The record is a 149-nucleotide sequence from Pantoea sp. Eser, which matches "sroC RNA" in Rfam. The base pairs follow the family's consensus structure, which was predicted with PFOLD. Rfam describes the family as follows. This family consists of a number of bacterial sroC RNA genes of around 160 bases in length. sroC is found in several Enterobacterial species. Taxonomically the source falls in Pantoea (Bacteria, Pseudomonadati, Gammaproteobacteria, Enterobacterales). It scores 59 bits against the family's covariance model.
RNA sequence: ACUAACAACGAUAACAAGGGCGCCCUGGCUGCCCUCUCGAUUGCUGAAACCGCGGCGCGGACAGACUGACUGAACCGGGUCGUUCCCCUGGUCCAGGAGUGAAAACGCCGUUCAUCAAUCUUCAGGGUAGCUUAGCUACCCUUUUUUAC
Numbered sequence: 001a002c003u004a005a006c007a008a009c010g011a012u013a014a015c016a017a018g019g020g021c022g023c024c025c026u027g028g029c030u031g032c033c034c035u036c037u038c039g040a041u042u043g044c045u046g047a048a049a050c051c052g053c054g055g056c057g058c059g060g061a062c063a064g065a066c067u068g069a070c071u072g073a074a075c076c077g078g079g080u081c082g083u084u085c086c087c088c089u090g091g092u093c094c095a096g097g098a099g100u101g102a103a104a105a106c107g108c109c110g111u112u113c114a115u116c117a118a119u120c121u122u123c124a125g126g127g128u129a130g131c132u133u134a135g136c137u138a139c140c141c142u143u144u145u146u147u148a149c
Base pairs, nucleotide, nucleotide: 018034019033020032021031022029023028035126036125037124039123040119041118042117043116046113047112058101062096064094072093074092075091076090077089078088079087